[Rfam]
RNA sequence: AGUACAGCUGUAACUCGGAGUUUCACGCCCUUAGGGUGGCGAUCGUUGUCUGACGAUCGCCACCCUAAGGGCGUGAAACUCCGAGUUACAGCUGUACU
Numbered sequence: 001a002g003u004a005c006a007g008c009u010g011u012a013a014c015u016c017g018g019a020g021u022u023u024c025a026c027g028c029c030c031u032u033a034g035g036g037u038g039g040c041g042a043u044c045g046u047u048g049u050c051u052g053a054c055g056a057u058c059g060c061c062a063c064c065c066u067a068a069g070g071g072c073g074u075g076a077a078a079c080u081c082c083g084a085g086u087u088a089c090a091g092c093u094g095u096a097c098u
Stems, first nucleotide, its partner, number of pairs: 001098008017082005026073005037062011